[Rfam]
RNA: FMN riboswitch aptamer (RFN element)
RNA sequence: ACGUAUUCUCAGGGCGGGGUGAAACUCCCCACCGGCGGUAUGGAGGGGAUCCUCCGAGCCCGCGAGCGCAAGCGCCCCCUAACGGGUCGCUUGGUCAAGCAGAUCCGGUGCGAUGCCGGAGCCGACGGUAAUAGUCCGGAUGGAAGAGAAUGCAG
Dot-bracket structure: ..((((((((......(((.......))).[[((((((...................[[))))..((...............................))...(((((.......)))))]])).(((.....]]))).......))))))))..